RNA sequence: UAUCCAUCCCGAGCGGCCGAGAGACCUGGCUCACAGACGCCGCAGCAACCACUCGCCGAGAGCAGGUGCUACCGCCAGGAACGAUGGAGG
Numbered sequence: 001u002a003u004c005c006a007u008c009c010c011g012a013g014c015g016g017c018c019g020a021g022a023g024a025c026c027u028g029g030c031u032c033a034c035a036g037a038c039g040c041c042g043c044a045g046c047a048a049c050c051a052c053u054c055g056c057c058g059a060g061a062g063c064a065g066g067u068g069c070u071a072c073c074g075c076c077a078g079g080a081a082c083g084a085u086g087g088a089g090g
Stems, first nucleotide, its partner, number of pairs: 001090001003088006013043005021032003026078004044070004049066002052062003074082001
RNA: SAM riboswitch aptamer (S box leader)
Organism: Actinophytocola xinjiangensis